[Rfam]
RNA sequence: ACCUUAUAAAGAGCGGCGGAGGGACUGGCCCUGUGAAGCCCGGCAACCUGCAUAUUGCAAGGUGCCAAAUCCAGCGGUAUGACCGAGAGAUGAGGA
Numbered sequence: 001a002c003c004u005u006a007u008a009a010a011g012a013g014c015g016g017c018g019g020a021g022g023g024a025c026u027g028g029c030c031c032u033g034u035g036a037a038g039c040c041c042g043g044c045a046a047c048c049u050g051c052a053u054a055u056u057g058c059a060a061g062g063u064g065c066c067a068a069a070u071c072c073a074g075c076g077g078u079a080u081g082a083c084c085g086a087g088a089g090a091u092g093a094g095g096a
Stems, first nucleotide, its partner, number of pairs: 002095006013041001015040003021031003025074004042066004047062002049059004070088001075085004
RNA: SAM riboswitch aptamer (S box leader)
Organism: Anaerotruncus colihominis